[Rfam]
RNA sequence: GCAUGGGUUUGGAUUUAUGGCAGGCCUGUCCACUGGGCCUUUCAAAGUGCCCAUGCCAGAGCAAACUGUGGCUCUGAACCAUUGCCUGGCCUGUGCCUGUAGGCUGCUGAUACUGAAGCAGGUUGCUCAGUG
Numbered sequence: 001g002c003a004u005g006g007g008u009u010u011g012g013a014u015u016u017a018u019g020g021c022a023g024g025c026c027u028g029u030c031c032a033c034u035g036g037g038c039c040u041u042u043c044a045a046a047g048u049g050c051c052c053a054u055g056c057c058a059g060a061g062c063a064a065a066c067u068g069u070g071g072c073u074c075u076g077a078a079c080c081a082u083u084g085c086c087u088g089g090c091c092u093g094u095g096c097c098u099g100u101a102g103g104c105u106g107c108u109g110a111u112a113c114u115g116a117a118g119c120a121g122g123u124u125g126c127u128c129a130g131u132g
Stems, first nucleotide, its partner, number of pairs: 001056008015047002018044003022040003025036002069125005080115002086109001087106006
RNA: Small nucleolar RNA SNORA42/SNORA80 family